This 102-nucleotide RNA sequence from Pseudohalioglobus lutimaris belongs to the Rfam family "c-di-GMP-I riboswitch aptamer". Pairs were carried over by alignment from the consensus structure, which is taken from published work. About the family: GEMM was predicted in a large-scale screen for bacterial structured RNA regulatory elements. Its Rfam clan is "c-di-GMP_I riboswitch clan".

RNA sequence: GCAUGAAAAAGGCACAGCCGGUGCAAACCGGUGUCGCAAAGCCACGGAUCCCACAGCGUAGUGUUUCGCCAUCUAACGCAGCAGGAUCGCCGGGUCACCAGC
Numbered sequence: 001g002c003a004u005g006a007a008a009a010a011g012g013c014a015c016a017g018c019c020g021g022u023g024c025a026a027a028c029c030g031g032u033g034u035c036g037c038a039a040a041g042c043c044a045c046g047g048a049u050c051c052c053a054c055a056g057c058g059u060a061g062u063g064u065u066u067c068g069c070c071a072u073c074u075a076a077c078g079c080a081g082c083a084g085g086a087u088c089g090c091c092g093g094g095u096c097a098c099c100a101g102c
Stems, first nucleotide, its partner, number of pairs: 012037002017032006041095003045092003048087003